Rfam assigns this 94-nucleotide sequence from Oxalicibacterium flavum to the family "Burkholderia RNA 7 (anti-hemB)". It is annotated as a small RNA. The family has 26 seed sequences and 479 matches in Rfam 15.1. Gene Ontology terms of the family: bacterial biofilm matrix and protein binding. It scores 65 bits against the family's covariance model.

RNA sequence: UCUCCCGCUUCUCCUCCCUGAGCGGGGCCAUGCCGCUUCAUGCGGGAUGGCGUUAUUGCCCCGGAGAUACUCCCCUUUCUCCGGGGCUUUUUUU
Numbered sequence: 001u002c003u004c005c006c007g008c009u010u011c012u013c014c015u016c017c018c019u020g021a022g023c024g025g026g027g028c029c030a031u032g033c034c035g036c037u038u039c040a041u042g043c044g045g046g047a048u049g050g051c052g053u054u055a056u057u058g059c060c061c062c063g064g065a066g067a068u069a070c071u072c073c074c075c076u077u078u079c080u081c082c083g084g085g086g087c088u089u090u091u092u093u094u
Stems, first nucleotide, its partner, number of pairs: 004026006028050004033045003059086008